[Rfam]
RNA sequence: ACGAAACAAAAGGGGUGCCCUAAAAGGCUGAGAUUAUACCCUAUGAACCUGACGGAUAAUGCCGGCGUAGGAAUUUGUUCAUAGCAUAUA
Numbered sequence: 001a002c003g004a005a006a007c008a009a010a011a012g013g014g015g016u017g018c019c020c021u022a023a024a025a026g027g028c029u030g031a032g033a034u035u036a037u038a039c040c041c042u043a044u045g046a047a048c049c050u051g052a053c054g055g056a057u058a059a060u061g062c063c064g065g066c067g068u069a070g071g072a073a074u075u076u077g078u079u080c081a082u083a084g085c086a087u088a089u090a
Stems, first nucleotide, its partner, number of pairs: 006078005011042004016036001017028003048071004053064003
RNA: TPP riboswitch aptamer (THI element)
Organism: Coprobacter fastidiosus